[Rfam]
Source information
Rfam assigns this 190-nucleotide RNA sequence from Lactobacillus sp. LL6 to the family "T-box leader". The family's RNA type in Rfam is cis-regulatory leader. The literature on the family includes a 1994 paper in J Bacteriol by Grundy et al., "Interaction between the acceptor end of tRNA and the T box stimulates antitermination in the Bacillus subtilis tyrS gene: a new role for the discriminator base".

RNA sequence: AGAAAAUAAAGGUUAGGAAGUAGUAGCAGGUAAUUUUUUUCAGAGAGAGACUGGUAGCUGUGAAGUCUUACUAAGAACUUGUGAACUUGUCCUAAGAUAAGCCUAUCGUAUGCUAGCCGCGUUAAGGAGCAAUUGAGUGUCGCGCUUAAGCGCGAAACUUAGGUGGUACCGCGAAAAAUUCGUCCUAUGA
Numbered sequence: 001a002g003a004a005a006a007u008a009a010a011g012g013u014u015a016g017g018a019a020g021u022a023g024u025a026g027c028a029g030g031u032a033a034u035u036u037u038u039u040u041c042a043g044a045g046a047g048a049g050a051c052u053g054g055u056a057g058c059u060g061u062g063a064a065g066u067c068u069u070a071c072u073a074a075g076a077a078c079u080u081g082u083g084a085a086c087u088u089g090u091c092c093u094a095a096g097a098u099a100a101g102c103c104u105a106u107c108g109u110a111u112g113c114u115a116g117c118c119g120c121g122u123u124a125a126g127g128a129g130c131a132a133u134u135g136a137g138u139g140u141c142g143c144g145c146u147u148a149a150g151c152g153c154g155a156a157a158c159u160u161a162g163g164u165g166g167u168a169c170c171g172c173g174a175a176a177a178a179u180u181c182g183u184c185c186u187a188u189g190a
Stems, first nucleotide, its partner, number of pairs: 007099002015093004026082006038070001047069006107121003140155006160187004171183005

Source information: Rfam 15.1 lists 19,395 matches to the family in 1,923 species. The family's consensus secondary structure is taken from published work. The match comes from Rfam's covariance-model search (110 bits).